A member of the RNA family "Small nucleolar RNA U54" from Setaria italica, 82 nucleotides long. Clan: U54 clan. Gene Ontology terms of the family: RNA processing and nucleolus. About the family: U54 is a C/D box small nucleolar RNA, which acts as a methylation guide for 18S ribosomal RNA in plants. On this family, see Chen et al., Nucleic Acids Res 2003: "The high diversity of snoRNAs in plants: identification and comparative study of 120 snoRNA genes from Oryza sativa".
[Rfam]
RNA sequence: AGCUCGGUGAUUGCAGCCAAUUGCAUUGGCAAUAUACGCUAUGCUGACCUCAGUUUGAUGAAAAUUAAAAAGUAUGAGAGCU
Numbered sequence: 001a002g003c004u005c006g007g008u009g010a011u012u013g014c015a016g017c018c019a020a021u022u023g024c025a026u027u028g029g030c031a032a033u034a035u036a037c038g039c040u041a042u043g044c045u046g047a048c049c050u051c052a053g054u055u056u057g058a059u060g061a062a063a064a065u066u067a068a069a070a071a072g073u074a075u076g077a078g079a080g081c082u
Base pairs, nucleotide, nucleotide: 001082002081003080004079005078